TPP riboswitch aptamer (THI element): a 110-nucleotide sequence from Catenibacterium sp. CAG:290. The match comes from Rfam's covariance-model search (67 bits). The base pairs follow the family's consensus structure, which is taken from published work. Taxonomically the source falls in Catenibacterium (Bacteria, Bacillota, Erysipelotrichia, Coprobacillaceae).
[Rfam]
RNA sequence: CAAAUAAAAAAGGGGAGCUGACGCGACGGCUGAGAAGAAAUACGAUCGGAUUUCGACCCAUAAAACCUGAUACGGAUAAUGCCGGCGUAGGAAUUUUGUUUUUUAGGUAU
Numbered sequence: 001c002a003a004a005u006a007a008a009a010a011a012g013g014g015g016a017g018c019u020g021a022c023g024c025g026a027c028g029g030c031u032g033a034g035a036a037g038a039a040a041u042a043c044g045a046u047c048g049g050a051u052u053u054c055g056a057c058c059c060a061u062a063a064a065a066c067c068u069g070a071u072a073c074g075g076a077u078a079a080u081g082c083c084g085g086c087g088u089a090g091g092a093a094u095u096u097u098g099u100u101u102u103u104u105a106g107g108u109a110u
Base pairs, nucleotide, nucleotide: 007097008096009095010094012059013058014057017030018029019028020027037054038053039052040051041050066091067090068089069088073084074083075082